Guanidine-I riboswitch aptamer: a 128-nucleotide RNA from Clostridium sp. Maddingley MBC34-26. This family represents a conserved RNA structure found upstream of the ykkC and yxkD genes in Bacillus subtilis and related genes in other bacteria. Rfam links the family to the GO term regulation of gene expression. Pairs were carried over by alignment from the consensus structure.
Nucleotides: 128
Stems, first nucleotide, its partner, number of pairs: 007089006015079002020076002022073001023070003090101004103123001105126001109121003
Number, partner (000 for none) and nucleotide at each position: 001000u002000a003000a004000a005000a006000a007089g008088u009087u010086u011085u012084u013000u014000a015079g016078g017000g018000u019000u020076c021075c022073g023070c024069u025068a026000u027000u028000u029000a030000a031000a032000g033000c034000a035000u036000a037000u038000u039000u040000g041000g042000g043000a044000u045000a046000u047000a048000g049000c050000a051000u052000g053000c054000a055000a056000a057000u058000a059000u060000g061000u062000c063000u064000g065000a066000u067000u068025u069024a070023g071000g072000g073022c074000u075021g076020g077000u078016c079015c080000g081000a082000g083000a084012a085011a086010a087009a088008a089007c090101g091100g092099c093098a094000g095000g096000a097000a098093u099092g100091c101090u102000a103123c104000a105126c106000g107000g108000a109121a110120g111119g112000a113000u114000a115000a116000a117000a118000g119111c120110c121109u122000g123103g124000g125000a126105g127000a128000u